[Rfam]
Overview:
This 66-nucleotide sequence from Marinisporobacter balticus belongs to the Rfam family "Fluoride riboswitch aptamer (crcB RNA motif)".
RNA sequence: AUGUGUUUAGGUGAUGGAGCUCACCUUUAAACAUUGCAAAUUGCAGUUGAUGGCUCCUACUUAGAU
Numbered sequence: 001a002u003g004u005g006u007u008u009a010g011g012u013g014a015u016g017g018a019g020c021u022c023a024c025c026u027u028u029a030a031a032c033a034u035u036g037c038a039a040a041u042u043g044c045a046g047u048u049g050a051u052g053g054c055u056c057c058u059a060c061u062u063a064g065a066u
Base pairs, nucleotide, nucleotide: 010025011024012023013022016057017056018055019054020053021052033047034046035045036044